[Rfam]
RNA: mir-1270 microRNA precursor family
Organism: Nomascus leucogenys
RNA sequence: CACAAUGUUAUACUGGAGAGCAGAAAGAGCUCUGUUGGGUAUAAGUAACAGACUUUUCUUUUUCUUCUAUGUGGCUCUUUGCA
Dot-bracket structure: ((....((((((..((((((..(.(((((...(((((........)))))..))))).)..))))))..))))))....))..